Description
A member of the RNA family "MIR5070 microRNA precursor family" from Brachypodium distachyon, 116 nucleotides long. The match comes from Rfam's covariance-model search (102 bits). The source organism's lineage runs through Eukaryota, Petrosaviidae, Poaceae, Brachypodieae and Brachypodium. The base pairs follow the family's consensus structure, which was predicted with RNAalifold. Rfam links the family to the GO terms miRNA-mediated post-transcriptional gene silencing and RISC complex. Its Rfam clan is "MIR2863 microRNA precursor clan".

RNA sequence: CAGGGUACCCUUGGACCCUCCUUAAUUCAACCAAAUGAACUAAAAUUUUAAAAUGACACAACUUUUUGAAAAACUAGUUCAUUUAUUUGAACCAAGGAGGAUCAAAAGGUAGCCUG
Numbered sequence: 001c002a003g004g005g006u007a008c009c010c011u012u013g014g015a016c017c018c019u020c021c022u023u024a025a026u027u028c029a030a031c032c033a034a035a036u037g038a039a040c041u042a043a044a045a046u047u048u049u050a051a052a053a054u055g056a057c058a059c060a061a062c063u064u065u066u067u068g069a070a071a072a073a074c075u076a077g078u079u080c081a082u083u084u085a086u087u088u089g090a091a092c093c094a095a096g097g098a099g100g101a102u103c104a105a106a107a108g109g110u111a112g113c114c115u116g
Stems, first nucleotide, its partner, number of pairs: 002115003006111004011106002014103002017100007026091005033084010